[Rfam]
RNA sequence: AUCACCUAGGGAGCUUGUUAAAAUGCAGAUUCUAAUUCUGGAGUUCUAGGAUGGGCCUAAGAAUCUGUAUUUCUAGCAAGCCCCCAGGUGAUGCCAA
Numbered sequence: 001a002u003c004a005c006c007u008a009g010g011g012a013g014c015u016u017g018u019u020a021a022a023a024u025g026c027a028g029a030u031u032c033u034a035a036u037u038c039u040g041g042a043g044u045u046c047u048a049g050g051a052u053g054g055g056c057c058u059a060a061g062a063a064u065c066u067g068u069a070u071u072u073c074u075a076g077c078a079a080g081c082c083c084c085c086a087g088g089u090g091a092u093g094c095c096a097a
Stems, first nucleotide, its partner, number of pairs: 003090003009084003014080007021072003025068005031062003